Small Cajal body specific RNA 8: a 134-nucleotide RNA sequence from Paramuricea clavata. On this family, see Darzacq et al., EMBO J 2002: "Cajal body-specific small nuclear RNAs: a novel class of 2'-O-methylation and pseudouridylation guide RNAs". By type it is a small Cajal body RNA. Rfam 15.1 lists 955 matches to the family in 741 species. The family's consensus secondary structure is taken from published work. The match comes from Rfam's covariance-model search (60 bits).
RNA sequence: UGGGAGCAAUAUUGAUACAUCACAUGUCUUGUAACCAUGACAAUGUGAUCACGGAUUCUCCCUACAAUAACAUUGCUCUCUGAUGACUACAAGAUUAGAAGCACAUCUUGUGGACAGAUACGGGGCAGACAUCG
Numbered sequence: 001u002g003g004g005a006g007c008a009a010u011a012u013u014g015a016u017a018c019a020u021c022a023c024a025u026g027u028c029u030u031g032u033a034a035c036c037a038u039g040a041c042a043a044u045g046u047g048a049u050c051a052c053g054g055a056u057u058c059u060c061c062c063u064a065c066a067a068u069a070a071c072a073u074u075g076c077u078c079u080c081u082g083a084u085g086a087c088u089a090c091a092a093g094a095u096u097a098g099a100a101g102c103a104c105a106u107c108u109u110g111u112g113g114a115c116a117g118a119u120a121c122g123g124g125g126c127a128g129a130c131a132u133c134g
Base pairs, nucleotide, nucleotide: 002062003061004060005059006058019049020048021047022046029039073128074127075126076125077124078123079122087113088112089111091109092108093107094106

scaRNAs are a specific class of small nuclear RNAs which localise to the Cajal bodies and guide the modification of RNA polymerase II transcribed spliceosomal RNAs U1, U2, U4, U5 and U12. Rfam links the family to the GO terms nucleolus, Cajal body and RNA processing.